Shown here is a 94-nucleotide RNA sequence from Sorghum bicolor, a member of the family "MIR5387 microRNA precursor family". Taxonomically the source falls in Sorghum (Eukaryota, Euphyllophyta, Magnoliopsida, Poales). Rfam 15.1 lists 1,029 matches to the family in 9 species. It scores 79 bits against the family's covariance model. Gene Ontology terms of the family: miRNA-mediated post-transcriptional gene silencing and RISC complex.

RNA sequence: UCGUGUUACCAACCGGUGCUAAAGGGUUCCUGCCCUGACAGCACCAGUCAGUAGCCGUUGGGCAGGACCCUUUAGCACCGGUUCGUGUUACAAA
Numbered sequence: 001u002c003g004u005g006u007u008a009c010c011a012a013c014c015g016g017u018g019c020u021a022a023a024g025g026g027u028u029c030c031u032g033c034c035c036u037g038a039c040a041g042c043a044c045c046a047g048u049c050a051g052u053a054g055c056c057g058u059u060g061g062g063c064a065g066g067a068c069c070c071u072u073u074a075g076c077a078c079c080g081g082u083u084c085g086u087g088u089u090a091c092a093a094a
Base pairs, nucleotide, nucleotide: 003091004090005089007087008086009085011083012082013081014080015079016078017077018076019075020074021073022072023071024070025069026068027067029066030065034061035060038058039057045051